Rfam assigns this 81-nucleotide sequence from Brachypodium distachyon to the family "Small nucleolar RNA R160". snoR160 is a C/D box small nucleolar RNA, which acts as a methylation guide for 25S ribosomal RNA in plants. snoR160 has been alternatively named snoZ270 in rice. The family has 9 seed sequences and 799 matches in Rfam 15.1. For this family Rfam cites "The high diversity of snoRNAs in plants: identification and comparative study of 120 snoRNA genes from Oryza sativa" (Chen et al., Nucleic Acids Res, 2003). By type it is a C/D-box small nucleolar RNA.
RNA sequence: AGCAAAAUGAGGAGGUCAUACCAUCUGAAAAUAUACUACUGUGGAUAGUACCUAUAUGGUCUUCAAAGUUCUCUGAUUGCU
Numbered sequence: 001a002g003c004a005a006a007a008u009g010a011g012g013a014g015g016u017c018a019u020a021c022c023a024u025c026u027g028a029a030a031a032u033a034u035a036c037u038a039c040u041g042u043g044g045a046u047a048g049u050a051c052c053u054a055u056a057u058g059g060u061c062u063u064c065a066a067a068g069u070u071c072u073c074u075g076a077u078u079g080c081u
Stems, first nucleotide, its partner, number of pairs: 001081005